[Rfam]
RNA: Small nucleolar RNA SNORA38
Nucleotides: 131
Base pairs, nucleotide, nucleotide: 002057003056004055005054006053017042018041019040020039021038024030025029069124070123071122091109092108093107094106095105
Number, partner (000 for none) and nucleotide at each position: 001000c002057c003056c004055u005054c006053c007000u008000a009000c010000a011000a012000a013000a014000g015000c016000a017042u018041g019040u020039c021038u022000u023000u024030g025029g026000u027000u028000c029025c030024u031000a032000g033000u034000c035000u036000u037000u038021a039020g040019a041018c042017a043000c044000a045000u046000a047000a048000g049000a050000a051000u052000u053006g054005g055004a056003g057002g058000c059000a060000a061000a062000g063000a064000a065000a066000u067000g068000u069124g070123g071122a072000c073000c074000u075000g076000a077000a078000g079000a080000a081000g082000u083000c084000u085000a086000g087000g088000g089000u090000u091109a092108g093107c094106u095105u096000u097000c098000u099000u100000c101000u102000c103000a104000u105095g106094g107093g108092u109091u110000u111000a112000a113000g114000a115000u116000c117000a118000a119000c120000a121000a122071u123070u124069c125000u126000a127000c128000a129000u130000a131000a